[Rfam]
This 122-nucleotide RNA from Vibrio nereis belongs to the Rfam family "Phenylalanine leader peptide". For this family Rfam cites "Nucleotide sequence of the leader region of the phenylalanine operon of Escherichia coli" (Zurawski et al., Proc Natl Acad Sci U S A, 1978). The organism belongs to Vibrio, within Bacteria. It scores 87 bits against the family's covariance model. The family's consensus secondary structure was predicted with CMfinder. By type it is a cis-regulatory leader. Gene Ontology term of the family: cellular amino acid metabolic process.
RNA sequence: GACAACAACCAACCUGUUCUUUUUUGACUUCUUUUUUCUCCACUAGGUUUGGAGGCUCUCUCGUUUUCGAAAGAUAAGUCAAAAACGAACAGGAAGCCUCCCAAAAGGGAGGCUUUUUUUAU
Numbered sequence: 001g002a003c004a005a006c007a008a009c010c011a012a013c014c015u016g017u018u019c020u021u022u023u024u025u026g027a028c029u030u031c032u033u034u035u036u037u038c039u040c041c042a043c044u045a046g047g048u049u050u051g052g053a054g055g056c057u058c059u060c061u062c063g064u065u066u067u068c069g070a071a072a073g074a075u076a077a078g079u080c081a082a083a084a085a086c087g088a089a090c091a092g093g094a095a096g097c098c099u100c101c102c103a104a105a106a107g108g109g110a111g112g113c114u115u116u117u118u119u120u121a122u
Stems, first nucleotide, its partner, number of pairs: 016090004021085010032074003036070002039053004054065003093116010